This 263-nucleotide sequence from Campylorhamphus procurvoides belongs to the Rfam family "RNase MRP". A search with the family's covariance model found it, with a score of 118 bits. Rfam describes the family as follows. RNase MRP is an enzymatically active ribonucleoprotein with two distinct roles in eukaryotes. Its family is annotated with rRNA processing, ribonuclease MRP activity and ribonuclease MRP complex in the Gene Ontology. Pairs were carried over by alignment from the consensus structure, which is taken from published work. By type it is a ribozyme.

RNA sequence: GGGUGUUCUGAAGACCUGCUCGCUAGGCCACGCACGGAGGACGAGCGUUCCUCACGGGCCCCGCGCCCGCCUAGGGGAAAGUCCCCGGACCGCCGGCAGAGAGUGCCGGGCGCUGCGGCGCCCCCGCCCGCCCCAGCCCACAGCGAGCCGCCGAGACGCCCCCGGGCCGAGCGGGUGGGCAGGGCCGGGCCCUCGUCACGGCCACAGGCACGCAGGUAGCGCGGUGGCCGCGCCAACAGAACGGGGCUCACUCUCAGGCCAUC
Dot-bracket structure: .((((.(((((..((((((...((((((........(((((.......)))))...............)))))).....[[.[[[[........((((.....))))((((((....)))))).(.(....(((.(.((........((((......(((....)))...))))..)).).)))..).)......................)))))).((((((...)))))).........]]]]]].....))))).))))